[Rfam]
Record summary
This 75-nucleotide sequence from Streptomyces albiflaviniger belongs to the Rfam family "ASpks TB sRNA". Pairs were carried over by alignment from the consensus structure, which is taken from published work. A reference for the family is Arnvig and Young (2009), "Identification of small RNAs in Mycobacterium tuberculosis", Mol Microbiol. It scores 75 bits against the family's covariance model. The organism belongs to Streptomyces, within Bacteria.
RNA sequence: CUUGAGCGACCCCAGCCACAGGGGGCGUUCAGCGGGCCGGUCCCGGCCGUAGGUGGCCAGCAGCGCGUGUGCCUC
Numbered sequence: 001c002u003u004g005a006g007c008g009a010c011c012c013c014a015g016c017c018a019c020a021g022g023g024g025g026c027g028u029u030c031a032g033c034g035g036g037c038c039g040g041u042c043c044c045g046g047c048c049g050u051a052g053g054u055g056g057c058c059a060g061c062a063g064c065g066c067g068u069g070u071g072c073c074u075c
Stems, first nucleotide, its partner, number of pairs: 016024002032070002038065002043060001045058001047056003